Rfam assigns this 83-nucleotide RNA from Pelodiscus sinensis to the family "Small nucleolar RNA SNORD87". Gene Ontology terms of the family: nucleolus and RNA processing. NCBI's taxonomy places the organism under Eukaryota, Gnathostomata, Euteleostomi, Amniota, Pelodiscus. The family's RNA type in Rfam is C/D-box small nucleolar RNA. The pairing is the family consensus, mapped onto this sequence.

RNA sequence: ACUGGCAUAAUGAUGAUUUCCUUUCGCCGUUUACCCAUCUGAAUAUAUAUAUUGAUGUAAAUGUUGAAGUCUGAGAUGCCAGU
Numbered sequence: 001a002c003u004g005g006c007a008u009a010a011u012g013a014u015g016a017u018u019u020c021c022u023u024u025c026g027c028c029g030u031u032u033a034c035c036c037a038u039c040u041g042a043a044u045a046u047a048u049a050u051a052u053u054g055a056u057g058u059a060a061a062u063g064u065u066g067a068a069g070u071c072u073g074a075g076a077u078g079c080c081a082g083u
Stems, first nucleotide, its partner, number of pairs: 001083007